[Rfam]
RNA sequence: CUCUUAUCCAGAGUGGCGGAGGGACUGGCCCUACGAUGCCCGGCAACCGUUAGAUGAUUCAACAUCUAAGAAGGUGCUAAAUCCUGCAAAGCAUGAAGCUUUGAAAGAUGAGAG
Numbered sequence: 001c002u003c004u005u006a007u008c009c010a011g012a013g014u015g016g017c018g019g020a021g022g023g024a025c026u027g028g029c030c031c032u033a034c035g036a037u038g039c040c041c042g043g044c045a046a047c048c049g050u051u052a053g054a055u056g057a058u059u060c061a062a063c064a065u066c067u068a069a070g071a072a073g074g075u076g077c078u079a080a081a082u083c084c085u086g087c088a089a090a091g092c093a094u095g096a097a098g099c100u101u102u103g104a105a106a107g108a109u110g111a112g113a114g
Base pairs, nucleotide, nucleotide: 001114002113003112004111005110006109007108008107013041015040016039017038021031022030023029025086027084028083042078043077044076045075047074048073050069051068052067053066054065055064082106087103088102089101090100091099092098
RNA: SAM riboswitch aptamer (S box leader)
Organism: Halalkalibacter krulwichiae